[Rfam]
RNA: c-di-GMP-I riboswitch aptamer
Organism: Syntrophotalea carbinolica
RNA sequence: UUUCGUUCAAGGCAAAGUCAGAGUAAUCUGGCCACGCAAAACCACGGGUCCAUGGUUCAUGGAUAGCCGGGUUGCCGAA
Numbered sequence: 001u002u003u004c005g006u007u008c009a010a011g012g013c014a015a016a017g018u019c020a021g022a023g024u025a026a027u028c029u030g031g032c033c034a035c036g037c038a039a040a041a042c043c044a045c046g047g048g049u050c051c052a053u054g055g056u057u058c059a060u061g062g063a064u065a066g067c068c069g070g071g072u073u074g075c076c077g078a079a
Base pairs, nucleotide, nucleotide: 012037013036017032018031019030020029021028022027040073041072042071043070045069046068047067048064049063050062051061052060053059054058
Dot-bracket structure: ...........((...((((((....))))))...))..((((.((((((((((...)))))))..)))))))......